[Rfam]
RNA sequence: UUCAAGGAAGAGGCUCUCUUAACAUCCUGCUUUACUCCUGUAUACCAAAAGAUACAGGAGUAAAGCAGGAUGUUAAGAGAGCCUCUUCCUUGAA
Number, nucleotide and partner (000 for none) at each position: 001u094002u093003c092004a000005a000006g089007g088008a087009a086010g085011a084012g000013g082014c081015u080016c079017u078018c077019u076020u075021a000022a000023c072024a071025u070026c069027c068028u067029g066030c065031u064032u063033u062034a061035c060036u059037c058038c057039u056040g055041u054042a053043u052044a000045c000046c000047a000048a000049a000050a000051g000052a043053u042054a041055c040056a039057g038058g037059a036060g035061u034062a033063a032064a031065g030066c029067a028068g027069g026070a025071u024072g023073u000074u000075a020076a019077g018078a017079g016080a015081g014082c013083c000084u011085c010086u009087u008088c007089c006090u000091u000092g003093a002094a001